[Rfam]
RNA sequence: UAGCUAUAAAAUAACUUAUAUCAGAUUACUUUUGAGUUACGAUAAUUACUAUGUUAAUUUACGAGAUUAUAGUAACUCCUUGUUAAGUGGUUUACUAUAACGUUAUGGUAAAUAUCUCCAUGUGUUAUAGUAACCCAACUAUCGUAAAUAUGUAUUAACAUUAUCGUAAUUUAGUAUCUAAAAUUAUCGUAAAUGGAGGUGGUAACUUAUUUUGUAGUUG
Number, nucleotide and partner (000 for none) at each position: 001u220002a219003g218004c217005u216006a215007u214008a213009a212010a211011a210012u209013a208014a207015c000016u205017u204018a203019u202020a000021u000022c000023a000024g000025a000026u000027u000028a000029c000030u199031u198032u197033u196034g000035a000036g000037u192038u191039a190040c189041g188042a187043u186044a185045a184046u183047u182048a000049c000050u000051a177052u176053g175054u174055u173056a172057a171058u000059u169060u168061a167062c166063g000064a000065g165066a164067u163068u000069a161070u160071a000072g000073u000074a155075a000076c000077u000078c000079c000080u147081u146082g145083u144084u000085a000086a000087g142088u141089g140090g139091u138092u137093u132094a131095c130096u129097a128098u127099a126100a125101c124102g123103u122104u000105a000106u000107g117108g116109u000110a000111a000112a000113u000114a000115u000116c108117u107118c000119c000120a000121u000122g103123u102124g101125u100126u099127a098128u097129a096130g095131u094132a093133a000134c000135c000136c000137a092138a091139c090140u089141a088142u087143c000144g083145u082146a081147a080148a000149u000150a000151u000152g000153u000154a000155u074156u000157a000158a000159c000160a070161u069162u000163a067164u066165c065166g062167u061168a060169a059170u000171u057172u056173a055174g054175u053176a052177u051178c000179u000180a000181a000182a047183a046184u045185u044186a043187u042188c041189g040190u039191a038192a037193a000194u000195g000196g033197a032198g031199g030200u000201g000202g019203u018204a017205a016206c000207u014208u013209a012210u011211u010212u009213u008214g007215u006216a005217g004218u003219u002220g001
A member of the RNA family "MIR6217 microRNA precursor family" from Miscanthus lutarioriparius, 220 nucleotides long. The organism belongs to Miscanthus, within Eukaryota. A search with the family's covariance model found it, with a score of 143 bits. The family has 2 seed sequences and 2,266 matches in Rfam 15.1.